RNA sequence: UUGUGUGCUGUGACGAGGCAAUUUUAUGGACUAGAGUUUCUGAUCUGGGAACUUUCUCAGAAAUUGAUUAUCAAACCCUUGGCUGUCUGAGCAUACUG
Numbered sequence: 001u002u003g004u005g006u007g008c009u010g011u012g013a014c015g016a017g018g019c020a021a022u023u024u025u026a027u028g029g030a031c032u033a034g035a036g037u038u039u040c041u042g043a044u045c046u047g048g049g050a051a052c053u054u055u056c057u058c059a060g061a062a063a064u065u066g067a068u069u070a071u072c073a074a075a076c077c078c079u080u081g082g083c084u085g086u087c088u089g090a091g092c093a094u095a096c097u098g
Stems, first nucleotide, its partner, number of pairs: 001098001003096006039067002044062001045060005